[Rfam]
RNA sequence: UACUGUUCAUGAUGAAUAAUUCUAAGCAAUGGGAAUCUCUCUGAGAGAGGCUGAGGAGGAAUUCUGUGCUGAAACAGUA
Numbered sequence: 001u002a003c004u005g006u007u008c009a010u011g012a013u014g015a016a017u018a019a020u021u022c023u024a025a026g027c028a029a030u031g032g033g034a035a036u037c038u039c040u041c042u043g044a045g046a047g048a049g050g051c052u053g054a055g056g057a058g059g060a061a062u063u064c065u066g067u068g069c070u071g072a073a074a075c076a077g078u079a
Stems, first nucleotide, its partner, number of pairs: 001079007
Rfam assigns this 79-nucleotide RNA sequence from Falco tinnunculus to the family "Small nucleolar RNA SNORD79".
snoRNA U79 or Z22 is found in intron 7 of the gas5 gene in humans and is also present in mice.
The family is grouped with related families in Rfam's "SNORD74 clan".
The family's consensus secondary structure was predicted with PFOLD.